[Rfam]
The record is a 103-nucleotide RNA sequence from Clostridium uliginosum, which matches "Purine riboswitch aptamer" in Rfam. From the family's description: Riboswitches are metabolite binding domains within certain messenger RNAs that serve as precision sensors for their corresponding targets. NCBI's taxonomy places the organism under Bacteria, Clostridia, Eubacteriales, Clostridiaceae, Clostridium. Rfam links the family to the GO term purine nucleobase biosynthetic process. Pairs were carried over by alignment from the consensus structure, which is taken from published work.
RNA sequence: CAACAGUUCAUACAAAAGACUCGUAUAUUUCCGAUAAUAAUGGUUGGAAAGUUUCUACCUGCUAUCCAUAAAUUAGCAGACUACGAGGUAUUGUUUUAAUUUU
Numbered sequence: 001c002a003a004c005a006g007u008u009c010a011u012a013c014a015a016a017a018g019a020c021u022c023g024u025a026u027a028u029u030u031c032c033g034a035u036a037a038u039a040a041u042g043g044u045u046g047g048a049a050a051g052u053u054u055c056u057a058c059c060u061g062c063u064a065u066c067c068a069u070a071a072a073u074u075a076g077c078a079g080a081c082u083a084c085g086a087g088g089u090a091u092u093g094u095u096u097u098a099a100u101u102u103u
Stems, first nucleotide, its partner, number of pairs: 018089001020087006029049007059079006